[Rfam]
RNA sequence: CCCUGGUGCCCUUCAUUCCACCGGAAUCUGUUGAUGCAGAACCCGGAUUUCAGUGGAAUGAAGCCCCUCAGAGA
Numbered sequence: 001c002c003c004u005g006g007u008g009c010c011c012u013u014c015a016u017u018c019c020a021c022c023g024g025a026a027u028c029u030g031u032u033g034a035u036g037c038a039g040a041a042c043c044c045g046g047a048u049u050u051c052a053g054u055g056g057a058a059u060g061a062a063g064c065c066c067c068u069c070a071g072a073g074a
Base pairs, nucleotide, nucleotide: 011063012062013061014060015059016058019055020054021053023051024050025049026048028046029045030044
The record is a 74-nucleotide sequence from Erithacus rubecula, which matches "mir-205 microRNA precursor family" in Rfam. For this family Rfam cites "Conservation of small RNA pathways in platypus" (Murchison et al., Genome Res, 2008). The organism belongs to Erithacus, within Eukaryota.